[Rfam]
Nucleotides: 109
Base pairs, nucleotide, nucleotide: 003107004106005105006104007103008102013042016041017040018039022032023031024030026082028080029079043074044073045072046071048070049069051066052065053064054063078101083098084097085096086095087094088093
Number, partner (000 for none) and nucleotide at each position: 001000c002000g003107c004106u005105u006104a007103u008102c009000g010000a011000g012000a013042g014000a015000u016041g017040g018039u019000u020000g021000a022032g023031g024030g025000a026082c027000u028080g029079g030024c031023c032022c033000g034000a035000u036000g037000a038000c039018a040017c041016c042013c043074g044073g045072c046071a047000a048070c049069c050000u051066g052065c053064c054063g055000c056000c057000u058000u059000a060000u061000a062000g063054c064053g065052g066051u067000a068000a069049g070048g071046u072045g073044c074043u075000a076000a077000c078101u079029c080028c081000u082026g083098c084097a085096g086095a087094a088093u089000u090000c091000g092000c093088a094087u095086u096085c097084u098083g099000a100000a101078a102008g103007a104006u105005a106004a107003g108000g109000u

The family of this 109-nucleotide RNA from Aneurinibacillus danicus is "SAM riboswitch aptamer (S box leader)". Taxonomically the source falls in Aneurinibacillus (Bacteria, Bacillati, Bacillota, Caryophanales).